[Rfam]
RNA sequence: AGAUAUUUACCACCGGAGAGGGAACUCCGGGAAGAUACAAUAAAUUAAGAUUAAGUGGUAAGAAUCAACGAUCAAGCUGGAUU
Numbered sequence: 001a002g003a004u005a006u007u008u009a010c011c012a013c014c015g016g017a018g019a020g021g022g023a024a025c026u027c028c029g030g031g032a033a034g035a036u037a038c039a040a041u042a043a044a045u046u047a048a049g050a051u052u053a054a055g056u057g058g059u060a061a062g063a064a065u066c067a068a069c070g071a072u073c074a075a076g077c078u079g080g081a082u083u
Stems, first nucleotide, its partner, number of pairs: 007033002010031001013030006066079002069076001